[Rfam]
RNA: Purine riboswitch aptamer
Organism: Paenibacillus monticola
RNA sequence: UUUCGAUGAUUCAUAUAAUCUCAUAUAAUCUUGGGGAUAUGGCCCAUAAGUUUCUACCGGAUGACCACUGUAAUUGUCCGACUAUGAGUGAAGUAGCGGGUCUC
Numbered sequence: 001u002u003u004c005g006a007u008g009a010u011u012c013a014u015a016u017a018a019u020c021u022c023a024u025a026u027a028a029u030c031u032u033g034g035g036g037a038u039a040u041g042g043c044c045c046a047u048a049a050g051u052u053u054c055u056a057c058c059g060g061a062u063g064a065c066c067a068c069u070g071u072a073a074u075u076g077u078c079c080g081a082c083u084a085u086g087a088g089u090g091a092a093g094u095a096g097c098g099g100g101u102c103u104c
Base pairs, nucleotide, nucleotide: 020088021087022086023085024084025083029049032046033045034044035043058080059079060078061077062076063075064074